Makes More Granules Regulator RNA (mmgR): a 71-nucleotide sequence from Faunimonas pinastri. The family's RNA type in Rfam is small RNA. Taxonomically the source falls in Faunimonas (Bacteria, Alphaproteobacteria, Hyphomicrobiales, Afifellaceae).
RNA sequence: CACUGCCGCCCCUCAGGGCGAUUUCCUCCCAUCACUUGGGCCGCUCCGAGCGGCCCUUCUUUUUGCGCGGU
Numbered sequence: 001c002a003c004u005g006c007c008g009c010c011c012c013u014c015a016g017g018g019c020g021a022u023u024u025c026c027u028c029c030c031a032u033c034a035c036u037u038g039g040g041c042c043g044c045u046c047c048g049a050g051c052g053g054c055c056c057u058u059c060u061u062u063u064u065g066c067g068c069g070g071u
Base pairs, nucleotide, nucleotide: 008019009018010017011016038056039055040054041053042052043051044050045049
A reference for the family is Lagares et al. (2016), "Phylogenetic distribution and evolutionary pattern of an alpha-proteobacterial small RNA gene that controls polyhydroxybutyrate accumulation in Sinorhizobium meliloti", Mol Phylogenet Evol. A search with the family's covariance model found it, with a score of 46 bits.